[Rfam]
RNA sequence: GCUUGUUAAACGCAAACCUAUGGAAACGUUGGGACGCAAAGCCAUGGCCUAAGGCAUCGAAGGAUGCUACGGACGUCAGGUUACCGAG
Numbered sequence: 001g002c003u004u005g006u007u008a009a010a011c012g013c014a015a016a017c018c019u020a021u022g023g024a025a026a027c028g029u030u031g032g033g034a035c036g037c038a039a040a041g042c043c044a045u046g047g048c049c050u051a052a053g054g055c056a057u058c059g060a061a062g063g064a065u066g067c068u069a070c071g072g073a074c075g076u077c078a079g080g081u082u083a084c085c086g087a088g
Stems, first nucleotide, its partner, number of pairs: 012037002017032002020029003040082004045078002048072002054067004